Background: A member of the RNA family "bip internal ribosome entry site (IRES)" from Tupaia belangeri, 275 nucleotides long. A search with the family's covariance model found it, with a score of 171 bits. The family has 9 seed sequences and 234 matches in Rfam 15.1. Its family is annotated with ribosome binding in the Gene Ontology. About the family: This family represents the bip internal ribosome entry site (IRES). BiP protein expression has been found to be significantly enhanced by the heat shock response due to IRES-dependent translation. It is thought that this translational mechanism is essential for the survival of cells under stress.
RNA sequence: CGCCGGCCAAGACAGCAUAGACCGAGUUACUGGUGUUUGCGUGAGUGAGAGUCGUAAGAGCUGCGGCCUGCAUUUCCGGACCUGUCCUUUUCCUCGUUCACGGCUUUUGACCCCGGGCUCACUGUCGCCAUCAGGUUGGCAUCCUCGCUGCGAUUCUGUGCUGCAGCCUGUGGCUGGAUUGUCUGCGACGCUUUCGCAGCCCUUGCCUGUCUGCUAACCGACUGGCCCAGGGCACCCGCAAGAUGAGGCUCUCCCUGGUGGCUGCGCUGCUGCUG
Numbered sequence: 001c002g003c004c005g006g007c008c009a010a011g012a013c014a015g016c017a018u019a020g021a022c023c024g025a026g027u028u029a030c031u032g033g034u035g036u037u038u039g040c041g042u043g044a045g046u047g048a049g050a051g052u053c054g055u056a057a058g059a060g061c062u063g064c065g066g067c068c069u070g071c072a073u074u075u076c077c078g079g080a081c082c083u084g085u086c087c088u089u090u091u092c093c094u095c096g097u098u099c100a101c102g103g104c105u106u107u108u109g110a111c112c113c114c115g116g117g118c119u120c121a122c123u124g125u126c127g128c129c130a131u132c133a134g135g136u137u138g139g140c141a142u143c144c145u146c147g148c149u150g151c152g153a154u155u156c157u158g159u160g161c162u163g164c165a166g167c168c169u170g171u172g173g174c175u176g177g178a179u180u181g182u183c184u185g186c187g188a189c190g191c192u193u194u195c196g197c198a199g200c201c202c203u204u205g206c207c208u209g210u211c212u213g214c215u216a217a218c219c220g221a222c223u224g225g226c227c228c229a230g231g232g233c234a235c236c237c238g239c240a241a242g243a244u245g246a247g248g249c250u251c252u253c254c255c256u257g258g259u260g261g262c263u264g265c266g267c268u269g270c271u272g273c274u275g
Stems, first nucleotide, its partner, number of pairs: 004264006015161006030116004035111002058106006065099002164176005